Shown here is a 46-nucleotide RNA from Urechidicola croceus, a member of the family "CRISPR RNA direct repeat element".
Rfam links the family to the GO term defense response.
[Rfam]
RNA sequence: ACUGCGAAUACUAAGUAAAAAUACAAUUUUGAAAGCAAUUCACAAC
Numbered sequence: 001a002c003u004g005c006g007a008a009u010a011c012u013a014a015g016u017a018a019a020a021a022u023a024c025a026a027u028u029u030u031g032a033a034a035g036c037a038a039u040u041c042a043c044a045a046c
Stems, first nucleotide, its partner, number of pairs: 003044002006041004016031005
Lineage of the source: Bacteria > Pseudomonadati > Bacteroidota > Flavobacteriia > Urechidicola.